[Rfam]
RNA: SAM (S-adenosyl methionine) riboswitch aptamer
Organism: Actinopolymorpha singaporensis
RNA sequence: GGCCACGUGGUGGGCGGGACUCGCCAGCCCCGGCUUGCUGGCCGGCAACCCUCCUCCGCGGUGGGGUGCCCCGGGUGAGGACCAGGUCGCGCCGACCGGUGCGGCAAGCGCGGGAC
Dot-bracket structure: ((.(....(((.(((..........((......)).))).)))(((..(((.((.....))..))).))).........).))..((((((((....))))))))...........
Numbered sequence: 001g002g003c004c005a006c007g008u009g010g011u012g013g014g015c016g017g018g019a020c021u022c023g024c025c026a027g028c029c030c031c032g033g034c035u036u037g038c039u040g041g042c043c044g045g046c047a048a049c050c051c052u053c054c055u056c057c058g059c060g061g062u063g064g065g066g067u068g069c070c071c072c073g074g075g076u077g078a079g080g081a082c083c084a085g086g087u088c089g090c091g092c093c094g095a096c097c098g099g100u101g102c103g104g105c106a107a108g109c110g111c112g113g114g115a116c
Stems, first nucleotide, its partner, number of pairs: 001083002004080001009043003013039003026035002044070003049066003053061002086105008